Source information
This 133-nucleotide RNA from Ailuropoda melanoleuca belongs to the Rfam family "U11 spliceosomal RNA". The source organism's lineage runs through Eukaryota, Opisthokonta, Deuterostomia, Craniata and Ailuropoda. The family's RNA type in Rfam is spliceosomal small nuclear RNA.
RNA sequence: UCAAAGGGCUCUGUCAUGAGUGGCACAUGUAAGCCAGCUACAUUGCUCUUCCUGUGGAACUGAAAUCAAGAGAUUUCAGAAUCAUAAUUUUUUGGUACCUGGGCAGCUGGUGAUCAUUGGUCCUGGUGCCCCA
Numbered sequence: 001u002c003a004a005a006g007g008g009c010u011c012u013g014u015c016a017u018g019a020g021u022g023g024c025a026c027a028u029g030u031a032a033g034c035c036a037g038c039u040a041c042a043u044u045g046c047u048c049u050u051c052c053u054g055u056g057g058a059a060c061u062g063a064a065a066u067c068a069a070g071a072g073a074u075u076u077c078a079g080a081a082u083c084a085u086a087a088u089u090u091u092u093u094g095g096u097a098c099c100u101g102g103g104c105a106g107c108u109g110g111u112g113a114u115c116a117u118u119g120g121u122c123c124u125g126g127u128g129c130c131c132c133a
Stems, first nucleotide, its partner, number of pairs: 008083001010080002012025005026054002029051001031049001033047001035045003055078005061072001101131004106127005112122004